[Rfam]
RNA sequence: GUCAACCACCCCGCCCUGAAGGGCGGAGCUUGAAAGGAGGUUCGACAAGCUCGGGUUGACCAGGGAAAGCGGUACCCAACCCGCUACGUUGGCAACAGGUACAAGACCCACCCCGGGAUGCUUCCUCAGUCCCGGGCUCUGGAAGCCGCCGAUGCAGACAACCGCGAGGGCCAGGACGAAACGGUCGGCGGCAAGGGAGCGAUCCCGAAGCCGGUUGACAACAUUCCCGAGGGGAGA
Numbered sequence: 001g002u003c004a005a006c007c008a009c010c011c012c013g014c015c016c017u018g019a020a021g022g023g024c025g026g027a028g029c030u031u032g033a034a035a036g037g038a039g040g041u042u043c044g045a046c047a048a049g050c051u052c053g054g055g056u057u058g059a060c061c062a063g064g065g066a067a068a069g070c071g072g073u074a075c076c077c078a079a080c081c082c083g084c085u086a087c088g089u090u091g092g093c094a095a096c097a098g099g100u101a102c103a104a105g106a107c108c109c110a111c112c113c114c115g116g117g118a119u120g121c122u123u124c125c126u127c128a129g130u131c132c133c134g135g136g137c138u139c140u141g142g143a144a145g146c147c148g149c150c151g152a153u154g155c156a157g158a159c160a161a162c163c164g165c166g167a168g169g170g171c172c173a174g175g176a177c178g179a180a181a182c183g184g185u186c187g188g189c190g191g192c193a194a195g196g197g198a199g200c201g202a203u204c205c206c207g208a209a210g211c212c213g214g215u216u217g218a219c220a221a222c223a224u225u226c227c228c229g230a231g232g233g234g235a236g237a
Base pairs, nucleotide, nucleotide: 001060002059003058004057005056006055007054010028012025015022016021029049030048031047032046063228064227065226066225067224068085069084070083071082072081088222089221090220091219093217094216095215096214098212108142109141112136113135114134115133116132117131118130119129122236123235124234125233126232127231145192146191147190148189149188150187151186152185153184

HNH endonuclease-associated RNA and ORF (HEARO) RNA: a 237-nucleotide RNA. The sequence is in the family's curated seed alignment. The base pairs follow the family's consensus structure, which is taken from published work.